A member of the RNA family "Alphaproteobacterial sRNA ar45" from Beijerinckia indica, 153 nucleotides long. Taxonomically the source falls in Beijerinckia indica subsp. indica (Bacteria, Hyphomicrobiales, Beijerinckiaceae, Beijerinckia indica). A reference for the family is del Val et al. (2012), "A survey of sRNA families in alpha-proteobacteria", RNA Biol.
RNA sequence: GCCCAAAUCGCACGUGCCUGUGGUCGUGGUCGAUUGGUGGGGAUCCGGACAAGAGGCCGGUUAACCACCUUAAAAGGAUCGACAGCCGGAGGCGAACCGGCGAACCCCGCCAAACGGGGAACGCGACUUAAAGCAACGACGGACCGGGCUUUU
Numbered sequence: 001g002c003c004c005a006a007a008u009c010g011c012a013c014g015u016g017c018c019u020g021u022g023g024u025c026g027u028g029g030u031c032g033a034u035u036g037g038u039g040g041g042g043a044u045c046c047g048g049a050c051a052a053g054a055g056g057c058c059g060g061u062u063a064a065c066c067a068c069c070u071u072a073a074a075a076g077g078a079u080c081g082a083c084a085g086c087c088g089g090a091g092g093c094g095a096a097c098c099g100g101c102g103a104a105c106c107c108c109g110c111c112a113a114a115c116g117g118g119g120a121a122c123g124c125g126a127c128u129u130a131a132a133g134c135a136a137c138g139a140c141g142g143a144c145c146g147g148g149c150u151u152u153u
Base pairs, nucleotide, nucleotide: 001149002148003147004146008139009138010137015135016134017133022128023127024126025125026124036069037068038067039066040065045060046059047058048057077097079095080094081093098123105119106118107117108116109115
Dot-bracket structure: ((((...(((....(((....(((((.........(((((....((((........))))....))))).......(.(((...........))).)(......(((((.....)))))...))))))....))).)))......))))....